[Rfam]
RNA sequence: GUGUUUUCAUGGUACUAAAUUUUAAGGUUAAAAUGAAGAAAGGGUUGUCGGAAGGUAACCCUUUCUUUGAU
Numbered sequence: 001g002u003g004u005u006u007u008c009a010u011g012g013u014a015c016u017a018a019a020u021u022u023u024a025a026g027g028u029u030a031a032a033a034u035g036a037a038g039a040a041a042g043g044g045u046u047g048u049c050g051g052a053a054g055g056u057a058a059c060c061c062u063u064u065c066u067u068u069g070a071u
Stems, first nucleotide, its partner, number of pairs: 043060007

Notes: A member of the RNA family "Bacteroidetes FopS (family of paralogous sRNAs)" from Azobacteroides pseudotrichonymphae, 71 nucleotides long. Lineage of the source: Bacteria > Pseudomonadati > Bacteroidia > Bacteroidales > Azobacteroides pseudotrichonymphae (SeqCode). Rfam describes the family as follows. The RNA-binding protein RbpB and BTncRNA_FopS sRNA are involved in the post-transcription regulation of polysaccharide utilisation loci (PUL). On this family, see Ruttiger et al., Nat Commun 2025: "The global RNA-binding protein RbpB is a regulator of polysaccharide utilization in Bacteroides thetaiotaomicron". The base pairs follow the family's consensus structure, which is taken from published work.